[Rfam]
RNA: Bacterial large subunit ribosomal RNA, nucleotides 857 to 1298
RNA sequence: CUCUUCGAAAUAGCUUUAGGGCUAGCCUCGAAGGAAGCAUCAUGGAGGUAGAGCACUGUUUGGACUAGGGGCCCGUCAGGGGUUACUGAAUUCAGAUAAACUCCGAAUGCCAUGGAUGCAUUGCCUUCGGGAGUCAGACAGUGAGUGAUAAGAUCCAUUGUCGAAAGGGAAACAGCCCAGACCACCAGUUAAGGUCCCAAAAUUUAUGUUAAGUGGAAAAGGAAGUGGGGUUGCUUAGACAACUAGGAUGUUGGCUCAGAAGCAGCCAUCAUUUAAAGAGUGCGUAAUAGCUCACUAGUCGAGUGACCCUGCGCCGAAGAUGUACCGGGGCUAAACAUAAUACCGAAACUGUGGAUGACCACUUCGUGGUCAUGGUAGAAGAGCGUUCUAAGGACGGUGAAGGCUGAUCGUGAGGACAGCUGGAGUGCUUAGAAGUGAGAAU
Numbered sequence: 001c002u003c004u005u006c007g008a009a010a011u012a013g014c015u016u017u018a019g020g021g022c023u024a025g026c027c028u029c030g031a032a033g034g035a036a037g038c039a040u041c042a043u044g045g046a047g048g049u050a051g052a053g054c055a056c057u058g059u060u061u062g063g064a065c066u067a068g069g070g071g072c073c074c075g076u077c078a079g080g081g082g083u084u085a086c087u088g089a090a091u092u093c094a095g096a097u098a099a100a101c102u103c104c105g106a107a108u109g110c111c112a113u114g115g116a117u118g119c120a121u122u123g124c125c126u127u128c129g130g131g132a133g134u135c136a137g138a139c140a141g142u143g144a145g146u147g148a149u150a151a152g153a154u155c156c157a158u159u160g161u162c163g164a165a166a167g168g169g170a171a172a173c174a175g176c177c178c179a180g181a182c183c184a185c186c187a188g189u190u191a192a193g194g195u196c197c198c199a200a201a202a203u204u205u206a207u208g209u210u211a212a213g214u215g216g217a218a219a220a221g222g223a224a225g226u227g228g229g230g231u232u233g234c235u236u237a238g239a240c241a242a243c244u245a246g247g248a249u250g251u252u253g254g255c256u257c258a259g260a261a262g263c264a265g266c267c268a269u270c271a272u273u274u275a276a277a278g279a280g281u282g283c284g285u286a287a288u289a290g291c292u293c294a295c296u297a298g299u300c301g302a303g304u305g306a307c308c309c310u311g312c313g314c315c316g317a318a319g320a321u322g323u324a325c326c327g328g329g330g331c332u333a334a335a336c337a338u339a340a341u342a343c344c345g346a347a348a349c350u351g352u353g354g355a356u357g358a359c360c361a362c363u364u365c366g367u368g369g370u371c372a373u374g375g376u377a378g379a380a381g382a383g384c385g386u387u388c389u390a391a392g393g394a395c396g397g398u399g400a401a402g403g404c405u406g407a408u409c410g411u412g413a414g415g416a417c418a419g420c421u422g423g424a425g426u427g428c429u430u431a432g433a434a435g436u437g438a439g440a441a442u
Stems, first nucleotide, its partner, number of pairs: 001383006011024005026133001027131007036122001037119005042113004051104001052102002057098003061094004068087002070084005137162007145154002167178003182354004187350003193344003202341001204340006221315002225312010242299005248272003253267003273277001278293001282291002355373008384437001386434007394426002402421005408415002